[Rfam]
RNA: pemK RNA
RNA sequence: AUAAUGAUACUUCUUUAGUGAAAGCCGGCUCAUCUUAACAGAGGCGGUGGUGAGAUUCCAAUGU
Numbered sequence: 001a002u003a004a005u006g007a008u009a010c011u012u013c014u015u016u017a018g019u020g021a022a023a024g025c026c027g028g029c030u031c032a033u034c035u036u037a038a039c040a041g042a043g044g045c046g047g048u049g050g051u052g053a054g055a056u057u058c059c060a061a062u063g064u
Base pairs, nucleotide, nucleotide: 012061013024014023015022016021025047026046027045029043030042031041048060049059050058